[Rfam]
RNA sequence: AAAAAUGUUCGGUUGGCUAUGUAUGUCACGCACAUCUUUUAAUUGAUGGGCGUUGUAUGGUUAUCAAGACAUAUGACCGACAUAAUUUAUGGAUGCUAUAGGGUUGGCUUGCUCAGCUAACCCUAUU
Numbered sequence: 001a002a003a004a005a006u007g008u009u010c011g012g013u014u015g016g017c018u019a020u021g022u023a024u025g026u027c028a029c030g031c032a033c034a035u036c037u038u039u040u041a042a043u044u045g046a047u048g049g050g051c052g053u054u055g056u057a058u059g060g061u062u063a064u065c066a067a068g069a070c071a072u073a074u075g076a077c078c079g080a081c082a083u084a085a086u087u088u089a090u091g092g093a094u095g096c097u098a099u100a101g102g103g104u105u106g107g108c109u110u111g112c113u114c115a116g117c118u119a120a121c122c123c124u125a126u127u
Base pairs, nucleotide, nucleotide: 009080010079011078012077014028015027016026017025029052030051031050033048034047035046036045053076054075055074056073057072058071059070099125100124101123102122103121104120105119106118107117109116110115

This 127-nucleotide RNA from Dendrobium nobile belongs to the Rfam family "U11 spliceosomal RNA".
The match comes from Rfam's covariance-model search (65 bits).